[Rfam]
Makes More Granules Regulator RNA (mmgR): a 78-nucleotide sequence from Lichenifustis flavocetrariae. The family has 87 seed sequences and 1,791 matches in Rfam 15.1. The organism belongs to Lichenifustis, within Bacteria. Rfam's curators write: SuhB later renamed mmgR (makes more granules regulator) was a putative non-coding RNA found multiple times in the Agrobacterium tumefaciens genome and related alpha-proteobacteria. Other non-coding RNAs uncovered in the same analysis include: speF, ybhL, metA, and serC.Several studies inSinorhizobium meliloti showed that suhB element is indeed a non-coding RNA:firstly it was detected on Northern blot and called Sm8RNA, secondly in an RNAseq study referred to as SmelC689.The mutant phenotype's (strain lacking the small RNA) cytoplasm contains higher content of polyhydroxybutyrate (PBH)storage granules than wild type strain. The sRNA is required to limit the PBH intracellular accumulation when the nitrogen-fixing Sinorhizobium meliloti is under condition of surplus carbon in relation to nitrogen. Rfam classes the family as a small RNA. Clan: suhB sRNA clan.
RNA sequence: GUCGCAUGCCCUUCUUGGGCGUUUCCUCCCUAGACUUGGGCCGCUUGUGGUAACGCAGGCGGCUCUUUUUUCUUAGGC
Dot-bracket structure: .......((((.....))))..................(((((((((........)))))))))..............